Background: A member of the RNA family "Glycine riboswitch aptamer" from Natronobacillus azotifigens, 100 nucleotides long. Lineage of the source: Bacteria > Bacillati > Bacillota > Bacillaceae > Natronobacillus.
[Rfam]
RNA sequence: AUGAAUAUUAUGGGAGAGUGUAUUUCUAUACCACCGAAGGAGCAAGUUCAUAAAAAACCAUAUGAACCAAUCUCUCAGGUAACCGAACCAUAAUAGGACG
Numbered sequence: 001a002u003g004a005a006u007a008u009u010a011u012g013g014g015a016g017a018g019u020g021u022a023u024u025u026c027u028a029u030a031c032c033a034c035c036g037a038a039g040g041a042g043c044a045a046g047u048u049c050a051u052a053a054a055a056a057a058c059c060a061u062a063u064g065a066a067c068c069a070a071u072c073u074c075u076c077a078g079g080u081a082a083c084c085g086a087a088c089c090a091u092a093a094u095a096g097g098a099c100g
Stems, first nucleotide, its partner, number of pairs: 006095008020031004033080003036076002040074003046067007